Source information:
Shown here is a 94-nucleotide RNA sequence from Tindallia californiensis, a member of the family "THF (Tetrahydrofolate) riboswitch aptamer". A reference for the family is Ames et al. (2010), "A eubacterial riboswitch class that senses the coenzyme tetrahydrofolate", Chem Biol.
[Rfam]
RNA sequence: GGCAGAGUAGACAUUAUGCGUUAAGUGUUGAGGGAUGGGAGGUUGCUCUCAAACGAAGAAUUUCUAUUCGCGUUAUAAUGUUGCAUCCGCUGCC
Numbered sequence: 001g002g003c004a005g006a007g008u009a010g011a012c013a014u015u016a017u018g019c020g021u022u023a024a025g026u027g028u029u030g031a032g033g034g035a036u037g038g039g040a041g042g043u044u045g046c047u048c049u050c051a052a053a054c055g056a057a058g059a060a061u062u063u064c065u066a067u068u069c070g071c072g073u074u075a076u077a078a079u080g081u082u083g084c085a086u087c088c089g090c091u092g093c094c
Stems, first nucleotide, its partner, number of pairs: 001094005010082009019072003025054002028052007038088003042084001058069004
Tetrahydrofolate (THF) riboswitch was first reported for Ames et al. as an RNA motif in 5' untranslated (5'-UTR)regions of folate transport and biosynthesis genes in Firmicutes genomes.